[Rfam]
RNA sequence: ACACGGGAAAGGAGGUGGUCCGAACAGUGAAUUCUUUCGGGACUCGUGAGGUGGCUGCCCGCUAGCAGCACGCUGCCCUCGCUUGCGGCACGCGCUGUGAGCGAAUCCACCGGCAGUCACCCGACCCGCAGGCGCUCCGGAUCUCGUCCCCCGGAGGCGCGCCACCGAGGCGCACGCCUGCGGGUCGCCCCAU
Number, nucleotide and partner (000 for none) at each position: 001a000002c000003a000004c000005g000006g000007g000008a000009a000010a000011g000012g000013a000014g059015g058016u057017g056018g055019u054020c000021c000022g000023a000024a000025c000026a000027g000028u000029g000030a000031a000032u000033u000034c000035u000036u000037u000038c000039g000040g000041g000042a000043c000044u000045c000046g000047u000048g000049a000050g000051g000052u000053g000054g019055c018056u017057g016058c015059c014060c103061g102062c101063u100064a000065g098066c097067a000068g095069c094070a000071c092072g000073c000074u090075g089076c088077c000078c000079u000080c000081g000082c000083u000084u000085g000086c000087g000088g076089c075090a074091c000092g071093c000094g069095c068096u000097g066098u065099g000100a063101g062102c061103g060104a000105a000106u000107c000108c000109a000110c000111c000112g000113g000114c000115a000116g000117u000118c000119a000120c000121c000122c187123g186124a185125c184126c183127c182128g181129c180130a179131g178132g177133c176134g175135c000136u155137c154138c153139g152140g151141a000142u000143c000144u000145c000146g000147u000148c000149c000150c000151c140152c139153g138154g137155a136156g000157g000158c000159g000160c000161g000162c000163c000164a000165c000166c000167g000168a000169g000170g000171c000172g000173c000174a000175c134176g133177c132178c131179u130180g129181c128182g127183g126184g125185u124186c123187g122188c000189c000190c000191c000192a000193u000

The family of this 193-nucleotide sequence from Nocardioides donggukensis is "Actinobacteria sRNA Ms_IGR-5". The organism belongs to Nocardioides, within Bacteria.